[Rfam]
RNA: Small nucleolar RNA SNORA11
Organism: Arabis nemorensis
RNA sequence: UUGGUGUUUUGUGAACAGUGUCACACCAAAUAUGGUGUGACACUGUUCACAAAACACCAAAAAAAAAAAUUUGGUGUAAAAUUUGCAGUUUCAUUGGAGAUGAAAUUACACCAAAUUU
Numbered sequence: 001u002u003g004g005u006g007u008u009u010u011g012u013g014a015a016c017a018g019u020g021u022c023a024c025a026c027c028a029a030a031u032a033u034g035g036u037g038u039g040a041c042a043c044u045g046u047u048c049a050c051a052a053a054a055c056a057c058c059a060a061a062a063a064a065a066a067a068a069a070u071u072u073g074g075u076g077u078a079a080a081a082u083u084u085g086c087a088g089u090u091u092c093a094u095u096g097g098a099g100a101u102g103a104a105a106u107u108a109c110a111c112c113a114a115a116u117u118u
Base pairs, nucleotide, nucleotide: 002059003058004057005056006055007054008053013048014047015046016045017044018043019042020041021040022037023036024035079117080116084113085112087107088106089105091103092102093101094100095099